RNA sequence: AGAAAACACUGCGGGAGCCUGAUACGCGGCACGUGCGGCAAUUGCCGGCGGCCGACAGGCUGAGAGGGUGCCUGGCACCGACCGUCGAACCUGAUCCGGGUCAUGCCGGCGUAGGGAAGGAAGCUCAAAGUUGU
Numbered sequence: 001a002g003a004a005a006a007c008a009c010u011g012c013g014g015g016a017g018c019c020u021g022a023u024a025c026g027c028g029g030c031a032c033g034u035g036c037g038g039c040a041a042u043u044g045c046c047g048g049c050g051g052c053c054g055a056c057a058g059g060c061u062g063a064g065a066g067g068g069u070g071c072c073u074g075g076c077a078c079c080g081a082c083c084g085u086c087g088a089a090c091c092u093g094a095u096c097c098g099g100g101u102c103a104u105g106c107c108g109g110c111g112u113a114g115g116g117a118a119g120g121a122a123g124c125u126c127a128a129a130g131u132u133g134u
Stems, first nucleotide, its partner, number of pairs: 009119002011085004017060005067079005090115004096109004
RNA: TPP riboswitch aptamer (THI element)
Organism: Crystallibacter crystallopoietes